RNA sequence: GAGAGCGCAUGGGGACUGGUGUCCUCCGCAGCCUUCAAAGCUGUCUGCGGGGUGGGUUGCCCCCGUCCCGGGUGGGUUCGAUUCCCACGCGCUCUC
Numbered sequence: 001g002a003g004a005g006c007g008c009a010u011g012g013g014g015a016c017u018g019g020u021g022u023c024c025u026c027c028g029c030a031g032c033c034u035u036c037a038a039a040g041c042u043g044u045c046u047g048c049g050g051g052g053u054g055g056g057u058u059g060c061c062c063c064c065g066u067c068c069c070g071g072g073u074g075g076g077u078u079c080g081a082u083u084c085c086c087a088c089g090c091g092c093u094c095u096c
Stems, first nucleotide, its partner, number of pairs: 001096008011026006028044005048070007073087004
A member of the RNA family "Selenocysteine transfer RNA" from bacterium HR16, 96 nucleotides long. Rfam 15.1 lists 4,211 matches to the family in 3,344 species. It scores 73 bits against the family's covariance model.